[Rfam]
RNA sequence: GGGCCCGAGAUGCCCCACCGGAUGGCUGGGGGAACCACUACUGACCGGCAGCGAUGCGGGUCUUGGGGUGCAGCCGCACUGCGGCAGGGAACCUGACCUCCCUAACCCGACAGCUCACCUCAGCGGCGCCAGUCAGGAAAGGA
Number, nucleotide and partner (000 for none) at each position: 001g000002g000003g000004c000005c000006c000007g000008a000009g000010a000011u128012g127013c126014c125015c000016c000017a000018c025019c024020g000021g000022a000023u000024g019025g018026c123027u122028g121029g120030g119031g118032g000033a000034a000035c000036c065037a064038c000039u000040a000041c000042u000043g000044a000045c000046c000047g000048g000049c000050a000051g000052c000053g000054a000055u000056g000057c000058g000059g000060g000061u000062c000063u000064u037065g036066g108067g107068g106069u000070g000071c000072a000073g000074c084075c083076g082077c081078a000079c000080u000081g077082c076083g075084g074085c000086a000087g102088g101089g100090a099091a000092c000093c000094u000095g000096a000097c000098c000099u090100c089101c088102c087103u000104a000105a000106c068107c067108c066109g000110a000111c000112a000113g000114c000115u000116c000117a000118c031119c030120u029121c028122a027123g026124c000125g014126g013127c012128g011129c000130c000131a000132g000133u000134c000135a000136g000137g000138a000139a000140a000141g000142g000143a000
RNA: c-di-AMP riboswitch aptamer (ydaO/yuaA leader)